The family of this 144-nucleotide RNA sequence from Flavobacterium orientale is "Flavo-1 RNA".
[Rfam]
RNA sequence: CCAUAGCCCCGAUUGUAGCGGAAAUUUUUUGCAGCAGACGGGUAUUUUUUCUUGCUUUAAAAAAGCGACCAAAGGAUACUCUUUUUGAAGCGUAGAAAAAAAGCCAGAUGCGGCAAAAAAUUGCAGCGGAAAGCGGGAUUAGCU
Numbered sequence: 001c002c003a004u005a006g007c008c009c010c011g012a013u014u015g016u017a018g019c020g021g022a023a024a025u026u027u028u029u030u031g032c033a034g035c036a037g038a039c040g041g042g043u044a045u046u047u048u049u050u051c052u053u054g055c056u057u058u059a060a061a062a063a064a065g066c067g068a069c070c071a072a073a074g075g076a077u078a079c080u081c082u083u084u085u086u087g088a089a090g091c092g093u094a095g096a097a098a099a100a101a102a103g104c105c106a107g108a109u110g111c112g113g114c115a116a117a118a119a120a121u122u123g124c125a126g127c128g129g130a131a132a133g134c135g136g137g138a139u140u141a142g143c144u
Stems, first nucleotide, its partner, number of pairs: 009136003013132002018127002023122004028117005034111002
Dot-bracket structure: ........(((.((...((...((((.(((((.((..........................................................................)).))))).))))...))...)).)))........